[Rfam]
RNA sequence: UACUUAUCAAGAGAGGUGGAGGGACUGGCCCGACGAAACCUCAGCAACAGAUUUAAACUACUGUGCUAAAUCCUGCAAGCCAUGUGCUUGGAAGAUAAGUU
Numbered sequence: 001u002a003c004u005u006a007u008c009a010a011g012a013g014a015g016g017u018g019g020a021g022g023g024a025c026u027g028g029c030c031c032g033a034c035g036a037a038a039c040c041u042c043a044g045c046a047a048c049a050g051a052u053u054u055a056a057a058c059u060a061c062u063g064u065g066c067u068a069a070a071u072c073c074u075g076c077a078a079g080c081c082a083u084g085u086g087c088u089u090g091g092a093a094g095a096u097a098a099g100u101u
Stems, first nucleotide, its partner, number of pairs: 002100007013042005021031003025075001027073002043067004048063002050059001052057001071093001076090005